Description:
Shown here is a 328-nucleotide sequence from Polaromonas sp. A23, a member of the family "Bacterial RNase P class A". The organism belongs to Polaromonas, within Bacteria. Rfam classes the family as a ribozyme. Clan: RNaseP clan. Its family is annotated with tRNA processing, dimeric ribonuclease P complex and ribonuclease P activity in the Gene Ontology. The base pairs follow the family's consensus structure, which is taken from published work.

[Rfam]
RNA sequence: GAAGCACGCCAGACUGCCGCUGGUGCAAGGGUGGAAACACCGCACUGGAGGAAGGUCCGGACUGCAUAGGGCAGCGUAGCAGCUAACGGCUGUCCACCGUGAGGUGAGGAUCAGAGCUACAGAGACGAGCCGGUUAAGUCCGGGUGAAACGAGCAAUCUCUACGCGCAGCAAUACCAAGUAGGCACACGUUGACGGGGCCCCCGGAGUGUGCGGGUAGGUAGCACCGAGCCGUCUGGCGACAGACGGCCCAGAUUAAUGGCAGUCACGGGGCGGCAACCGCAAGGAAACCGUUCCGCACAAAAUCCGGCCUAUCGGCGGGCUUCACAC
Numbered sequence: 001g002a003a004g005c006a007c008g009c010c011a012g013a014c015u016g017c018c019g020c021u022g023g024u025g026c027a028a029g030g031g032u033g034g035a036a037a038c039a040c041c042g043c044a045c046u047g048g049a050g051g052a053a054g055g056u057c058c059g060g061a062c063u064g065c066a067u068a069g070g071g072c073a074g075c076g077u078a079g080c081a082g083c084u085a086a087c088g089g090c091u092g093u094c095c096a097c098c099g100u101g102a103g104g105u106g107a108g109g110a111u112c113a114g115a116g117c118u119a120c121a122g123a124g125a126c127g128a129g130c131c132g133g134u135u136a137a138g139u140c141c142g143g144g145u146g147a148a149a150c151g152a153g154c155a156a157u158c159u160c161u162a163c164g165c166g167c168a169g170c171a172a173u174a175c176c177a178a179g180u181a182g183g184c185a186c187a188c189g190u191u192g193a194c195g196g197g198g199c200c201c202c203c204g205g206a207g208u209g210u211g212c213g214g215g216u217a218g219g220u221a222g223c224a225c226c227g228a229g230c231c232g233u234c235u236g237g238c239g240a241c242a243g244a245c246g247g248c249c250c251a252g253a254u255u256a257a258u259g260g261c262a263g264u265c266a267c268g269g270g271g272c273g274g275c276a277a278c279c280g281c282a283a284g285g286a287a288a289c290c291g292u293u294c295c296g297c298a299c300a301a302a303a304u305c306c307g308g309c310c311u312a313u314c315g316g317c318g319g320g321c322u323u324c325a326c327a328c
Base pairs, nucleotide, nucleotide: 001324002323003322004321005320007318008317009316010315011313012265013264014263015262016261017260018259020048021047022046023045024044025043026042053311054310055309057308058307059306060305061304062169063168064167065166069201070200071199072198074165075164076163077162078161079093080092081091082090083089094108095106096105097104098103109160110159114158115157116154117153118152130143131142132141133140173221174220175219176218183212184211185210186209187208188207194204195203196202229248230247231246232245233244234243235242236241